[Rfam]
RNA sequence: AAUAAUCUCUGUUAGGUGAGGCUCUUGUAUGGAGAUAUGCUGCUGCCCAAAAAUGUCGAGAGACGCCAAUGGGUCAACAGGAACGAUCGGCAUAAGGUCGUUCUUAAUGCAGCUGGUGCAACCCUAUGCCAUACAAUGCUAAAACUCAACGAGGGAGAGGCGG
Numbered sequence: 001a002a003u004a005a006u007c008u009c010u011g012u013u014a015g016g017u018g019a020g021g022c023u024c025u026u027g028u029a030u031g032g033a034g035a036u037a038u039g040c041u042g043c044u045g046c047c048c049a050a051a052a053a054u055g056u057c058g059a060g061a062g063a064c065g066c067c068a069a070u071g072g073g074u075c076a077a078c079a080g081g082a083a084c085g086a087u088c089g090g091c092a093u094a095a096g097g098u099c100g101u102u103c104u105u106a107a108u109g110c111a112g113c114u115g116g117u118g119c120a121a122c123c124c125u126a127u128g129c130c131a132u133a134c135a136a137u138g139c140u141a142a143a144a145c146u147c148a149a150c151g152a153g154g155g156a157g158a159g160g161c162g163g
Stems, first nucleotide, its partner, number of pairs: 006158005011150002013095001015146003020140003025136008039113005045074005054065004080104004086098003115124002
M-box riboswitch aptamer (ykoK leader): a 163-nucleotide RNA from Bacillus sp. 165. Lineage of the source: Bacteria > Bacillota > Caryophanales > Bacillaceae > Bacillus. From the family's description: M-box riboswitch, also know as ykoK leader is described as a metaloregulatory RNA that sense divalent metals and function as a genetic control element of genes related to divalent metal transport in bacteria. The pairing is the family consensus, mapped onto this sequence. The literature on the family includes a 2007 paper in Cell by Dann CE 3rd et al., "Structure and mechanism of a metal-sensing regulatory RNA". Rfam links the family to the GO terms response to magnesium ion and regulation of gene expression.